[Rfam]
RNA sequence: CUGCCUCGCGUUGUAUGGAAGACUAGUGAUUUUGUUGUUUGAUAAUAUAUAUAACAAUAAAUCACUAAUCUCCCUACAAAGCGCUGGC
Numbered sequence: 001c002u003g004c005c006u007c008g009c010g011u012u013g014u015a016u017g018g019a020a021g022a023c024u025a026g027u028g029a030u031u032u033u034g035u036u037g038u039u040u041g042a043u044a045a046u047a048u049a050u051a052u053a054a055c056a057a058u059a060a061a062u063c064a065c066u067a068a069u070c071u072c073c074c075u076a077c078a079a080a081g082c083g084c085u086g087g088c
Base pairs, nucleotide, nucleotide: 002087006083008082009081011079012078013077014076015075017073018072020071021070022069026065027064028063029062030061031060032059034058035057036056037055038054039053